Source information:
Rfam assigns this 307-nucleotide sequence from Steatornis caripensis to the family "Metazoan signal recognition particle RNA". A search with the family's covariance model found it, with a score of 196 bits. The signal recognition particle (SRP) is a universally conserved ribonucleoprotein. It is involved in the co-translational targeting of proteins to membranes. The eukaryotic SRP consists of a 300-nucleotide 7S RNA and six proteins: SRPs 72, 68, 54, 19, 14, and 9. Archaeal SRP consists of a 7S RNA and homologues of the eukaryotic SRP19 and SRP54 proteins. Eukaryotic and archaeal 7S RNAs have very similar secondary structures, as represented by this family. Eight helical elements fold into the Alu and S domains, separated by a long linker region. The Alu domain is thought to mediate the peptide chain elongation retardation function of the SRP. The universally conserved helix which interacts with the SRP54 M domain mediates signal sequence recognition. In eukaryotes and archaea, the SRP19-helix 6 complex is thought to be involved in SRP assembly and stabilises helix 8 for SRP54 binding. The Signal Recognition Particle Database (SRPDB) provides compilations of SRP components, with phylogenetic data and structural illustrations. Many sequences below the threshold for this family are clearly closely related, but are most likely to be SRP RNA derived pseudogenes. The human genome in particular is known to contain a large amount of SRP RNA related sequence, including Alu repeats. While the threshold of this family is set high so as to minimise the number of hits to such regions, it is likely that some remain. The family has 91 seed sequences and 383,523 matches in Rfam 15.1.

[Rfam]
RNA sequence: GCCGGGCACGGUGGCUUGUGCCUGUAAUCCAAGUGCCGGGGAGGCUGAGGCUGGUGGAUGGCUUGAGCCUGGGUGCUCUGGGCUGCAACGAGCUGUGCUGAGCGGGCGUCCACGCUAAGGCCGGCAUCGAUACGGUGGUCCAGGGGGAACUGGGGGCCACCAGGUUGCCUAAGGGGGGGCGAACCGGCCCAGGUCGGAGACGGAGGUCCAGACCAGGUCAAAGCUCCCGUGCCGGUCAGUAGCGGGAUGGUGCCUGUGAACGGUCCCUGUAGCACAGCCUGGGCGAGACAGCGGGACCCAGUUUUCU
Numbered sequence: 001g002c003c004g005g006g007c008a009c010g011g012u013g014g015c016u017u018g019u020g021c022c023u024g025u026a027a028u029c030c031a032a033g034u035g036c037c038g039g040g041g042a043g044g045c046u047g048a049g050g051c052u053g054g055u056g057g058a059u060g061g062c063u064u065g066a067g068c069c070u071g072g073g074u075g076c077u078c079u080g081g082g083c084u085g086c087a088a089c090g091a092g093c094u095g096u097g098c099u100g101a102g103c104g105g106g107c108g109u110c111c112a113c114g115c116u117a118a119g120g121c122c123g124g125c126a127u128c129g130a131u132a133c134g135g136u137g138g139u140c141c142a143g144g145g146g147g148a149a150c151u152g153g154g155g156g157c158c159a160c161c162a163g164g165u166u167g168c169c170u171a172a173g174g175g176g177g178g179g180c181g182a183a184c185c186g187g188c189c190c191a192g193g194u195c196g197g198a199g200a201c202g203g204a205g206g207u208c209c210a211g212a213c214c215a216g217g218u219c220a221a222a223g224c225u226c227c228c229g230u231g232c233c234g235g236u237c238a239g240u241a242g243c244g245g246g247a248u249g250g251u252g253c254c255u256g257u258g259a260a261c262g263g264u265c266c267c268u269g270u271a272g273c274a275c276a277g278c279c280u281g282g283g284c285g286a287g288a289c290a291g292c293g294g295g296a297c298c299c300a301g302u303u304u305u306c307u
Base pairs, nucleotide, nucleotide: 001045002044003043004023005022006021007020008019009018010017011016028042029041030040047305048304049303050302051301052300053299054298059294061292062291063290067284068283069282070281071280072279073278078277079276080275082273083272084271085270086269087268090265092264093263094262095261096260098258102257103256104255105254106253107252108251109250110246111245113244114243115242116241117240119237120236121235122234123233124232125231126230127229128167129166130165131164134161135160136159137158138157139156140155141154144151145150168174169173175228176227177226178225179224180223186219187218188217189216194211196209197208198207
For this family Rfam cites "Kinship in the SRP RNA family" (Rosenblad et al., RNA Biol, 2009).